[Rfam]
Annotation: The family of this 289-nucleotide sequence from Molossus molossus is "Mason-Pfizer monkey virus packaging signal". Rfam's curators write: This family represents a group of sequences that are related to the Mason-Pfizer monkey virus (MPMV) packaging signal. The packaging signal is located in the 5' UTR and is required for specific RNA encapsidation. The base pairs follow the family's consensus structure, which was predicted with PFOLD. The source organism's lineage runs through Eukaryota, Opisthokonta, Mammalia, Eutheria and Molossus.

RNA sequence: UGGCGCCCAACGUGGGGCUCCAGCACGGGGGAUCCAGUGAAGGACGCCGUUCGAGUAGCCGGCAGAAAGAAAAGCAAAAGAAAAGAAAGUAAAAGAAAAGAGGGUACGACGUGGGAACCUGCUGCGUCUGCACCCCUUGGGUAAGUGAAUGGCGAUUAUGGGUCAAGCAUUGAGCCAAGAUAAGAUGUUCGUUGAAGGACUAAAAAAAAGGCUAUCAAGGCAUGAGGAGUAAAGGUGAAAAUUAAGCAUUUGUGUCAGUAUUUUGAUUAUAUUAAAGAAGUUUUCCCUU
Numbered sequence: 001u002g003g004c005g006c007c008c009a010a011c012g013u014g015g016g017g018c019u020c021c022a023g024c025a026c027g028g029g030g031g032a033u034c035c036a037g038u039g040a041a042g043g044a045c046g047c048c049g050u051u052c053g054a055g056u057a058g059c060c061g062g063c064a065g066a067a068a069g070a071a072a073a074g075c076a077a078a079a080g081a082a083a084a085g086a087a088a089g090u091a092a093a094a095g096a097a098a099a100g101a102g103g104g105u106a107c108g109a110c111g112u113g114g115g116a117a118c119c120u121g122c123u124g125c126g127u128c129u130g131c132a133c134c135c136c137u138u139g140g141g142u143a144a145g146u147g148a149a150u151g152g153c154g155a156u157u158a159u160g161g162g163u164c165a166a167g168c169a170u171u172g173a174g175c176c177a178a179g180a181u182a183a184g185a186u187g188u189u190c191g192u193u194g195a196a197g198g199a200c201u202a203a204a205a206a207a208a209a210g211g212c213u214a215u216c217a218a219g220g221c222a223u224g225a226g227g228a229g230u231a232a233a234g235g236u237g238a239a240a241a242u243u244a245a246g247c248a249u250u251u252g253u254g255u256c257a258g259u260a261u262u263u264u265g266a267u268u269a270u271a272u273u274a275a276a277g278a279a280g281u282u283u284u285c286c287c288u289u
Base pairs, nucleotide, nucleotide: 006031007030008029012026013025014024036051037050038049039048097138098137103133104131105130110126111125112124113123114122146165147164148163150162153160154159172215174212175211176210223265224264225263226262227261229259230258233251234250235249236248237247274289275288277286279284